[Rfam]
RNA sequence: CUGACAGAAGAGAGUGAGCACACAAAGGCACUUUGCAUGUUCGAUGCAUUUGCUUCUCUUGCGUGCUCACUGCUCUAUCUGUCAG
Numbered sequence: 001c002u003g004a005c006a007g008a009a010g011a012g013a014g015u016g017a018g019c020a021c022a023c024a025a026a027g028g029c030a031c032u033u034u035g036c037a038u039g040u041u042c043g044a045u046g047c048a049u050u051u052g053c054u055u056c057u058c059u060u061g062c063g064u065g066c067u068c069a070c071u072g073c074u075c076u077a078u079c080u081g082u083c084a085g
Base pairs, nucleotide, nucleotide: 001085002084003083004082005081006080007079008078010075011074012073013071014070015069016068017067018066019065020064021063023061024060025059
Shown here is an 85-nucleotide sequence, a member of the family "mir-156 microRNA precursor family". Gene Ontology terms of the family: miRNA-mediated post-transcriptional gene silencing and RISC complex. This family represents the plant microRNA (miRNA) precursor mir-156.